[Rfam]
RNA sequence: UGGGCGGAUAGGAACCAGUCAGUACCUGUGCAUUGAUUGGGCCGAAAACCGCCAAUACUAUUUGUGCACACUAAAGGUCGUAUGUGUUUCUCUGUGAAGCAUGUAUAUCACCAUUGUGGACAACAGUU
Numbered sequence: 001u002g003g004g005c006g007g008a009u010a011g012g013a014a015c016c017a018g019u020c021a022g023u024a025c026c027u028g029u030g031c032a033u034u035g036a037u038u039g040g041g042c043c044g045a046a047a048a049c050c051g052c053c054a055a056u057a058c059u060a061u062u063u064g065u066g067c068a069c070a071c072u073a074a075a076g077g078u079c080g081u082a083u084g085u086g087u088u089u090c091u092c093u094g095u096g097a098a099g100c101a102u103g104u105a106u107a108u109c110a111c112c113a114u115u116g117u118g119g120a121c122a123a124c125a126g127u128u
Stems, first nucleotide, its partner, number of pairs: 003053005011043002015040009025030001065120001067118004072113001076112003080106002083103008
Shown here is a 128-nucleotide sequence from Teladorsagia circumcincta, a member of the family "Nematode snoRNA ceN39". The literature on the family includes a 2007 paper in BMC Mol Biol by Jia et al., "Systematic identification of non-coding RNA 2,2,7-trimethylguanosine cap structures in Caenorhabditis elegans". Rfam 15.1 lists 95 matches to the family in 44 species. Its family is annotated with RNA processing and nucleolus in the Gene Ontology. By type it is an H/ACA-box small nucleolar RNA. NCBI's taxonomy places the organism under Eukaryota, Eumetazoa, Nematoda, Rhabditida, Teladorsagia.